RNA sequence: UCCCCGGCUGGGCUAUUGCCCGGCAGCUUCCUCGCAGAUUUUGUCAAAAGCUGCCGAGAUGAUAACGCGGUUUUUAUGGAUGUAUUUUGUCCGCGUGUCAACGCCCUCCUGACUGUCAAAGUUUCGGAGAGGAAACAAAAACAAGUCUCCGUU
Numbered sequence: 001u002c003c004c005c006g007g008c009u010g011g012g013c014u015a016u017u018g019c020c021c022g023g024c025a026g027c028u029u030c031c032u033c034g035c036a037g038a039u040u041u042u043g044u045c046a047a048a049a050g051c052u053g054c055c056g057a058g059a060u061g062a063u064a065a066c067g068c069g070g071u072u073u074u075u076a077u078g079g080a081u082g083u084a085u086u087u088u089g090u091c092c093g094c095g096u097g098u099c100a101a102c103g104c105c106c107u108c109c110u111g112a113c114u115g116u117c118a119a120a121g122u123u124u125c126g127g128a129g130a131g132g133a134a135a136c137a138a139a140a141a142c143a144a145g146u147c148u149c150c151g152u153u
Base pairs, nucleotide, nucleotide: 007024008023009022010021011020012019013018029062030061031058032057033056034055035053036052037051042047079147080146081145082142083141085140086139087138088137089136090135104132105131106129107128108127109126115125
Ascomycota telomerase RNA: a 153-nucleotide part of an RNA from Trichoderma atroviride. The base pairs follow the family's consensus structure. By type it is a non-coding RNA gene.